[Rfam]
RNA: Group II catalytic intron D1-D4-7
RNA sequence: CCAUCUGUAUCACCAGAUGAACCUAGGAGCUUGAAUAAAGUAGCGGCUCUGACAAUGUAACAAAGAACGGGAGUGAUACCGUUCGGGGUCGAAAUCGUGAGAAGACUCCCCUCCUGAUAACCACAAAUCGGGUGAAUGC
Dot-bracket structure: .((((((......)))))).......((((((.......)....)))))...............((((((........))))))((((......((....)).....)))).((((((........)))))).......